[Rfam]
RNA: Glycine riboswitch aptamer
Organism: Pseudothauera nasutitermitis
RNA sequence: AGCAGCAAGUCUGGAGAGCGAUGCGGGUUCCGUGCCUGUGCAUCCACCGAAGGGGCACCCGGCCGCGCCGGAAUCUCUCAGGUACAAGGGACAGAUGGGGCGCA
Numbered sequence: 001a002g003c004a005g006c007a008a009g010u011c012u013g014g015a016g017a018g019c020g021a022u023g024c025g026g027g028u029u030c031c032g033u034g035c036c037u038g039u040g041c042a043u044c045c046a047c048c049g050a051a052g053g054g055g056c057a058c059c060c061g062g063c064c065g066c067g068c069c070g071g072a073a074u075c076u077c078u079c080a081g082g083u084a085c086a087a088g089g090g091a092c093a094g095a096u097g098g099g100g101c102g103c104a
Stems, first nucleotide, its partner, number of pairs: 006099001009096005020044006046083003049079002053077003060070002